RNA sequence: CACACCCGCAAUGGGCAAAGAGACACCAGGUUGGUGGUGUUGUUCUAUCAGUCAGGGACAGAGCAGAUGGCAGUCCUUUGUUCAUCUGAGCUUGAUGCCUGGUUUGAUGGCCAAAGCUGUUUUAUGCCUCGGACACAUAA
Numbered sequence: 001c002a003c004a005c006c007c008g009c010a011a012u013g014g015g016c017a018a019a020g021a022g023a024c025a026c027c028a029g030g031u032u033g034g035u036g037g038u039g040u041u042g043u044u045c046u047a048u049c050a051g052u053c054a055g056g057g058a059c060a061g062a063g064c065a066g067a068u069g070g071c072a073g074u075c076c077u078u079u080g081u082u083c084a085u086c087u088g089a090g091c092u093u094g095a096u097g098c099c100u101g102g103u104u105u106g107a108u109g110g111c112c113a114a115a116g117c118u119g120u121u122u123u124a125u126g127c128c129u130c131g132g133a134c135a136c137a138u139a140a
Stems, first nucleotide, its partner, number of pairs: 005056002008053001012050003019046002022041006079135005094128001096126001100124003105119002108116001